RNA sequence: AGGGCCGGGAGGGGCGGCCAUCUUCUUCCUAACCCUAAGUGAGAAAGGCAUAGGCGCCGCGCUUUUGGUCCCCGCGCGCUGUUUUUCUCGCUGACUUUCAGCGCGCGGAAAAGCCUUGGCCUACUGCCGUCCACCGUCCAGUCUUGAGCAAACAAAAAAUGUCAGCCGCUGGCCGAGCACCCCUCCCGGGACCUGCGGCAGCCCGUCCGCCCGCCCGGCCCCCGAGCCCUGCCUGGAGGCCGCGGCCAGCCCGGGGCUUCUCCGGAAGCACCCAUUGCGGCCGCGAAGAGUUGGGCUCUGUCAGCCGCGGGACCCUCGGGGGCCAGGGCGAGGCCCGGGCCUGCGGCCGCAGGGAGAGUAACAGAGCGGGUCCCGCGCGGCGCGCGCCCCUGAGCAGUGGGACGAGCGCCCGGACCCGCUCGCACACGC
Numbered sequence: 001a002g003g004g005c006c007g008g009g010a011g012g013g014g015c016g017g018c019c020a021u022c023u024u025c026u027u028c029c030u031a032a033c034c035c036u037a038a039g040u041g042a043g044a045a046a047g048g049c050a051u052a053g054g055c056g057c058c059g060c061g062c063u064u065u066u067g068g069u070c071c072c073c074g075c076g077c078g079c080u081g082u083u084u085u086u087c088u089c090g091c092u093g094a095c096u097u098u099c100a101g102c103g104c105g106c107g108g109a110a111a112a113g114c115c116u117u118g119g120c121c122u123a124c125u126g127c128c129g130u131c132c133a134c135c136g137u138c139c140a141g142u143c144u145u146g147a148g149c150a151a152a153c154a155a156a157a158a159a160u161g162u163c164a165g166c167c168g169c170u171g172g173c174c175g176a177g178c179a180c181c182c183c184u185c186c187c188g189g190g191a192c193c194u195g196c197g198g199c200a201g202c203c204c205g206u207c208c209g210c211c212c213g214c215c216c217g218g219c220c221c222c223c224g225a226g227c228c229c230u231g232c233c234u235g236g237a238g239g240c241c242g243c244g245g246c247c248a249g250c251c252c253g254g255g256g257c258u259u260c261u262c263c264g265g266a267a268g269c270a271c272c273c274a275u276u277g278c279g280g281c282c283g284c285g286a287a288g289a290g291u292u293g294g295g296c297u298c299u300g301u302c303a304g305c306c307g308c309g310g311g312a313c314c315c316u317c318g319g320g321g322g323c324c325a326g327g328g329c330g331a332g333g334c335c336c337g338g339g340c341c342u343g344c345g346g347c348c349g350c351a352g353g354g355a356g357a358g359u360a361a362c363a364g365a366g367c368g369g370g371u372c373c374c375g376c377g378c379g380g381c382g383c384g385c386g387c388c389c390c391u392g393a394g395c396a397g398u399g400g401g402a403c404g405a406g407c408g409c410c411c412g413g414a415c416c417c418g419c420u421c422g423c424a425c426a427c428g429c
Base pairs, nucleotide, nucleotide: 005189006188007187008186009185010184011183012182013181014180016174017173018172019171020170061114062113063112064111065110073107074106075105076104077103078102079101080100081099090166091165092164093163094162095161096159097158098157192353193352194351195350196349197348198347205334206333207332208330209329210328211327212326219322220321221320222319223318224317225316228311229310230309231308232307241285242284243283244282245281247280249278250277253273254272255271287299288298289297290296364421365420366419367418368417369416370415371414372413373412380409381408382407383406388401389400390399
The record is a 429-nucleotide sequence from Otolemur garnettii, which matches "Vertebrate telomerase RNA" in Rfam. The organism belongs to Otolemur, within Eukaryota. Rfam links the family to the GO terms telomerase catalytic core complex, telomere maintenance via telomerase and telomerase activity. From the family's description: Telomerase is a ribonucleoprotein reverse transcriptase that synthesises telomeric DNA. Telomerase RNAs differ greatly in sequence and structure between vertebrates, ciliates and yeasts, but they share a 5' pseudoknot structure close to the template sequence. It scores 299 bits against the family's covariance model. Pairs were carried over by alignment from the consensus structure, which is taken from published work.